[Rfam]
The record is a 344-nucleotide RNA sequence from Aminipila terrae, which matches "Bacterial RNase P class A" in Rfam. Pairs were carried over by alignment from the consensus structure, which is taken from published work. NCBI's taxonomy places the organism under Bacteria, Bacillota, Clostridia, Anaerovoracaceae, Aminipila. Ribonuclease P (RNase P) is a ubiquitous endoribonuclease, found in archaea, bacteria and eukarya as well as chloroplasts and mitochondria. It scores 294 bits against the family's covariance model.
RNA sequence: UGGGUAAGCCAGACAGUCGCGUGCAUCUGCACGAGGAAAGUCCGGGCUCCAUAGGGCAAGGGUGCCAGAUAACGUCUGGCGUAGGUAACUAUAGGGAAAGUGCAACAGAAACAUACCGCCGAAACAGUCAGGCUGUGGUAAGGUUGAAAUGGCGAGGUAAGAGCUCACCGGCGUUAUGGAGACAUAACGGCCGUGUAAACCCCACCUGGAGCAAGACCAAAUAGGGCGCAAAAAGCGGCGGCCCGUCGCUGCCCGGUAGGUAGGUCGCUUGAGCGUAUUAGCAAUGAUACGCCUAGAUAGAUGAUUGUCAAAUACAGAACCCGGCUUACAGACUUACCCAGAAC
Numbered sequence: 001u002g003g004g005u006a007a008g009c010c011a012g013a014c015a016g017u018c019g020c021g022u023g024c025a026u027c028u029g030c031a032c033g034a035g036g037a038a039a040g041u042c043c044g045g046g047c048u049c050c051a052u053a054g055g056g057c058a059a060g061g062g063u064g065c066c067a068g069a070u071a072a073c074g075u076c077u078g079g080c081g082u083a084g085g086u087a088a089c090u091a092u093a094g095g096g097a098a099a100g101u102g103c104a105a106c107a108g109a110a111a112c113a114u115a116c117c118g119c120c121g122a123a124a125c126a127g128u129c130a131g132g133c134u135g136u137g138g139u140a141a142g143g144u145u146g147a148a149a150u151g152g153c154g155a156g157g158u159a160a161g162a163g164c165u166c167a168c169c170g171g172c173g174u175u176a177u178g179g180a181g182a183c184a185u186a187a188c189g190g191c192c193g194u195g196u197a198a199a200c201c202c203c204a205c206c207u208g209g210a211g212c213a214a215g216a217c218c219a220a221a222u223a224g225g226g227c228g229c230a231a232a233a234a235g236c237g238g239c240g241g242c243c244c245g246u247c248g249c250u251g252c253c254c255g256g257u258a259g260g261u262a263g264g265u266c267g268c269u270u271g272a273g274c275g276u277a278u279u280a281g282c283a284a285u286g287a288u289a290c291g292c293c294u295a296g297a298u299a300g301a302u303g304a305u306u307g308u309c310a311a312a313u314a315c316a317g318a319a320c321c322c323g324g325c326u327u328a329c330a331g332a333c334u335u336a337c338c339c340a341g342a343a344c
Stems, first nucleotide, its partner, number of pairs: 001340008010331001012309007020033005038327003042324005047211004054244004059207003063204002065079005080094001081092004095202002100200002102196003116143002118139004123134001125132001151169002154166003171191001172189007215266004225257001227255001228252002235249005273292008